Nucleotides: 076
Stems, first nucleotide, its partner, number of pairs: 001076003004072004009067001011065002014062006021056003029053004034048003037044002
Number, partner (000 for none) and nucleotide at each position: 001076g002075a003074g004072a005071c006070a007069c008000c009067c010000g011065u012064g013000u014062g015061g016060a017059g018058c019057a020000g021056g022055a023054c024000u025000u026000g027000c028000u029053u030052c031051a032050g033000c034048g035047a036046g037044g038043c039000u040000u041000u042000g043038g044037u045000g046036c047035u048034c049000a050032c051031u052030g053029a054023g055022u056021c057019u058018g059017c060016u061015c062014c063000u064012u065011g066000a067009g068000u069007g070006u071005g072004u073000g074003c075002u076001u
A member of the RNA family "mir-9229 microRNA precursor family" from Pipistrellus kuhlii, 76 nucleotides long. The family's consensus secondary structure was predicted with RNAalifold. Rfam 15.1 lists 27,225 matches to the family in 9 species. Taxonomically the source falls in Pipistrellus (Eukaryota, Chordata, Euteleostomi, Tetrapoda). Its family is annotated with miRNA-mediated post-transcriptional gene silencing and RISC complex in the Gene Ontology. A search with the family's covariance model found it, with a score of 73 bits.